Record summary:
A member of the RNA family "mir-1991 microRNA precursor family" from Acanthosepion pharaonis, 65 nucleotides long. Pairs were carried over by alignment from the consensus structure, which was predicted with RNAalifold. Gene Ontology terms of the family: miRNA-mediated post-transcriptional gene silencing and RISC complex. Rfam 15.1 lists 12 matches to the family in 11 species. It scores 70 bits against the family's covariance model. The organism belongs to Acanthosepion, within Eukaryota.
RNA sequence: AAACUUACCCUGUAAAUCGGAGAAGUAGUUAAUUCAAUAAACUUCUCGUUUCACAGGGUAUAUUU
Dot-bracket structure: .....((((((((.((.((.((((((..............)))))))).)).)))))))).....